Description: The record is a 68-nucleotide RNA sequence from Strongylocentrotus purpuratus, which matches "Mammalian CPEB3 ribozyme" in Rfam. The family's consensus secondary structure is taken from published work. About the family: The mammalian CPEB3 ribozyme is a self cleaving RNA located in the second intron of the CPEB3 gene which belongs to a family of genes regulating messenger RNA polyadenylation. The source organism's lineage runs through Eukaryota, Echinozoa, Echinoidea, Echinacea and Strongylocentrotus.
RNA sequence: CGGGGGGGGGGGAUUGAAGGAGCGUUCACGUCGCGGUUCCUGUCAGAUGAAAAUAUGCGAAUCCUUUA
Number, nucleotide and partner (000 for none) at each position: 001c000002g000003g000004g000005g000006g000007g040008g039009g038010g037011g000012g000013a000014u000015u068016g067017a066018a065019g064020g063021a062022g034023c033024g032025u000026u000027c000028a000029c000030g000031u000032c024033g023034c022035g000036g000037u010038u009039c008040c007041u000042g000043u000044c057045a056046g000047a054048u053049g000050a000051a000052a000053a048054u047055a000056u045057g044058c000059g000060a000061a000062u021063c020064c019065u018066u017067u016068a015